Notes:
Rfam assigns this 67-nucleotide RNA sequence from Heterocephalus glaber to the family "Small nucleolar RNA SNORD109A". Rfam classes the family as a C/D-box small nucleolar RNA. On this family, see Runte et al., Hum Mol Genet 2001: "The IC-SNURF-SNRPN transcript serves as a host for multiple small nucleolar RNA species and as an antisense RNA for UBE3A".
[Rfam]
RNA sequence: GGAUCGAUGAGGAGAACAAUUCCUUGAGGAUGCUGAGGGACUGUUUUUAGAUGUCAAUCUGAGGUCC
Numbered sequence: 001g002g003a004u005c006g007a008u009g010a011g012g013a014g015a016a017c018a019a020u021u022c023c024u025u026g027a028g029g030a031u032g033c034u035g036a037g038g039g040a041c042u043g044u045u046u047u048u049a050g051a052u053g054u055c056a057a058u059c060u061g062a063g064g065u066c067c
Base pairs, nucleotide, nucleotide: 001067002066003065004064005063
Dot-bracket structure: (((((.........................................................)))))

The source organism's lineage runs through Eukaryota, Bilateria, Vertebrata, Gnathostomata and Heterocephalus.
Rfam 15.1 lists 412 matches to the family in 134 species.